This 90-nucleotide sequence belongs to the Rfam family "GA-cis RNA". Rfam's curators put it in the seed alignment. The family's RNA type in Rfam is small RNA. The family's consensus secondary structure is taken from published work.
RNA sequence: AUGAGGAGGAACCGUUAUGUGCAAAGCGAAAAAUAAAAAAGCGGUUCCGACGCCCUGCCGCCGAGCGAAAGCGAGGGGGCAAUACAGAUU
Number, nucleotide and partner (000 for none) at each position: 001a000002u000003g000004a000005g000006g000007a000008g048009g047010a046011a045012c044013c043014g000015u000016u032017a000018u030019g000020u028021g027022c000023a000024a000025a000026g000027c021028g020029a000030a018031a000032a016033a000034u000035a000036a000037a000038a000039a000040a000041g000042c000043g013044g012045u011046u010047c009048c008049g000050a000051c000052g000053c000054c000055c000056u000057g080058c079059c078060g000061c076062c075063g000064a000065g072066c071067g000068a000069a000070a000071g066072c065073g000074a000075g062076g061077g000078g059079g058080c057081a000082a000083u000084a000085c000086a000087g000088a000089u000090u000